[Rfam]
RNA sequence: GAACAGUGAUAAAAUGGUUUCACUAUAGACCUUUAUAACUAUGAAGAUUUCUAUACUUGAACUGAACUCA
Numbered sequence: 001g002a003a004c005a006g007u008g009a010u011a012a013a014a015u016g017g018u019u020u021c022a023c024u025a026u027a028g029a030c031c032u033u034u035a036u037a038a039c040u041a042u043g044a045a046g047a048u049u050u051c052u053a054u055a056c057u058u059g060a061a062c063u064g065a066a067c068u069c070a
Base pairs, nucleotide, nucleotide: 001069002068013034014033016031017030018029019028
RNA: Small nucleolar RNA U2-30
Organism: Neogale vison